A member of the RNA family "ZMP/ZTP riboswitch aptamer (pfl RNA motif)" from Salana multivorans, 95 nucleotides long. NCBI's taxonomy places the organism under Bacteria, Bacillati, Actinomycetes, Micrococcales, Salana. The base pairs follow the family's consensus structure, which is taken from published work. Gene Ontology terms of the family: one-carbon metabolic process and regulation of purine nucleotide biosynthetic process. A search with the family's covariance model found it, with a score of 43 bits.
RNA sequence: CGGACGGGCCGCGACUGGCGAACGAGGUGGAGCACCACCGGGGAGCUGCCCAGUGCUGGUGACCACCCCGCGUGCCGGACGCCUGGGCCCGCGGC
Number, nucleotide and partner (000 for none) at each position: 001c000002g000003g054004a000005c000006g051007g050008g049009c048010c000011g046012c045013g000014a000015c042016u041017g083018g082019c081020g080021a000022a000023c000024g000025a000026g000027g038028u037029g036030g035031a000032g000033c000034a000035c030036c029037a028038c027039c000040g000041g016042g015043g000044a000045g012046c011047u000048g009049c008050c007051c006052a000053g000054u003055g000056c000057u000058g000059g000060u000061g000062a000063c000064c000065a000066c000067c000068c000069c000070g000071c000072g090073u000074g088075c087076c086077g000078g000079a000080c020081g019082c018083c017084u000085g000086g076087g075088c074089c000090c072091g000092c000093g000094g000095c000